RNA sequence: GUGGGACAGAUUGAGUUGAUCUGCGAGUAGGUCUUGCAGGUCAAAUUACUGUCCCUAAAUCAUAGAGAGGGCAGCUGAGGAGUGUUGCGAAGUUGUUCUACUUCGAAGUUACUCGCUGCAUUCCCACAUUU
Number, nucleotide and partner (000 for none) at each position: 001g000002u000003g055004g054005g053006a052007c051008a050009g049010a000011u000012u000013g000014a000015g000016u044017u043018g042019a041020u040021c039022u038023g037024c036025g035026a034027g033028u000029a000030g000031g000032u000033c027034u026035u025036g024037c023038a022039g021040g020041u019042c018043a017044a016045a000046u000047u000048a000049c009050u008051g007052u006053c005054c004055c003056u000057a000058a000059a000060u000061c000062a000063u000064a000065g000066a000067g123068a122069g000070g121071g000072c000073a000074g000075c000076u000077g000078a000079g000080g000081a000082g000083u000084g000085u000086u000087g000088c000089g000090a000091a000092g000093u000094u000095g000096u000097u000098c000099u000100a000101c000102u000103u000104c000105g000106a000107a000108g000109u000110u000111a000112c000113u000114c000115g000116c000117u000118g000119c000120a000121u070122u068123c067124c000125c000126a000127c000128a000129u000130u000131u000
RNA: Caenorhabditis snoRNA ceN59